[Rfam]
RNA sequence: AGACUUCGAAUCAGGUGGGACUACCCGCUGAACUUAAGCAUAUCAAUAAGCAGAGGAAAAGAAAAUAACUAUGAUUCCCUUAGUAACGGCGAGUGAACAGGGAAAAGCCCAAAUUUGUAAUCUGGCACUUUUUACAAGUGUCCGAGUUGUAAUUUGUAGAACUGUUAUCCGCGCUGGACCAUGUACAAGUCUGUUGAAAAGCAGCAUCAUUGAAGGUGAAAAUCCUGUAGAUGAUAUGGACUACCAGUGCAUUUGUGAUACGGUUUCUAAGAGUCGAGUUGUUUGGGAAUGCAGCUCAAAGUGGGUGGUAAAUUCCAUCUAGGGCUAAAUAUAAGUGAGAGACCGAUAGCAAACAAGUACCGUGAGGGAAAGAUGAAAAGAACUUUGAAAAUAGAGUUAACAGUACGUGAAAUUGCUGAAAGGGAAA
Numbered sequence: 001a002g003a004c005u006u007c008g009a010a011u012c013a014g015g016u017g018g019g020a021c022u023a024c025c026c027g028c029u030g031a032a033c034u035u036a037a038g039c040a041u042a043u044c045a046a047u048a049a050g051c052a053g054a055g056g057a058a059a060a061g062a063a064a065a066u067a068a069c070u071a072u073g074a075u076u077c078c079c080u081u082a083g084u085a086a087c088g089g090c091g092a093g094u095g096a097a098c099a100g101g102g103a104a105a106a107g108c109c110c111a112a113a114u115u116u117g118u119a120a121u122c123u124g125g126c127a128c129u130u131u132u133u134a135c136a137a138g139u140g141u142c143c144g145a146g147u148u149g150u151a152a153u154u155u156g157u158a159g160a161a162c163u164g165u166u167a168u169c170c171g172c173g174c175u176g177g178a179c180c181a182u183g184u185a186c187a188a189g190u191c192u193g194u195u196g197a198a199a200a201g202c203a204g205c206a207u208c209a210u211u212g213a214a215g216g217u218g219a220a221a222a223u224c225c226u227g228u229a230g231a232u233g234a235u236a237u238g239g240a241c242u243a244c245c246a247g248u249g250c251a252u253u254u255g256u257g258a259u260a261c262g263g264u265u266u267c268u269a270a271g272a273g274u275c276g277a278g279u280u281g282u283u284u285g286g287g288a289a290u291g292c293a294g295c296u297c298a299a300a301g302u303g304g305g306u307g308g309u310a311a312a313u314u315c316c317a318u319c320u321a322g323g324g325c326u327a328a329a330u331a332u333a334a335g336u337g338a339g340a341g342a343c344c345g346a347u348a349g350c351a352a353a354c355a356a357g358u359a360c361c362g363u364g365a366g367g368g369a370a371a372g373a374u375g376a377a378a379a380g381a382a383c384u385u386u387g388a389a390a391a392u393a394g395a396g397u398u399a400a401c402a403g404u405a406c407g408u409g410a411a412a413u414u415g416c417u418g419a420a421a422g423g424g425a426a427a
Stems, first nucleotide, its partner, number of pairs: 024055001025053001027051003035042002065072002076103005086094002106326004112154004119147001121145002124142006159267002161264004166260004171250007179239006189205001191204004208212001215225002276297007303320005360367002383394002386391001
Dot-bracket structure: .......................((.(((.....((....))......))).).).........((....))...(((((.....((.....))....)))))..((((..((((...(.((.((((((.......)))))).)).)...))))....((((((.((((.(((((((.((((((....(.((((......)))))..(...)..((.......))........))))))....)))))))......)))))))).))........(((((((........))))))).....(((((........)))))..)))).................................((....))...............((.(....).)).................................
Notes:
The record is a 427-nucleotide part of an RNA from Melampsora laricis-populina, which matches "Eukaryotic large subunit ribosomal RNA" in Rfam.